The record is a 46-nucleotide RNA sequence from Desulfomonile tiedjei, which matches "Acido-Lenti-1 RNA" in Rfam. NCBI's taxonomy places the organism under Bacteria, Pseudomonadati, Desulfomonilia, Desulfomonile, Desulfomonile tiedjei.

RNA sequence: CCACGGGUUCGCGCCCGUGGCUACGAUAGUCCGUCCUUUCAGGACG
Numbered sequence: 001c002c003a004c005g006g007g008u009u010c011g012c013g014c015c016c017g018u019g020g021c022u023a024c025g026a027u028a029g030u031c032c033g034u035c036c037u038u039u040c041a042g043g044a045c046g
Stems, first nucleotide, its partner, number of pairs: 001020008033045005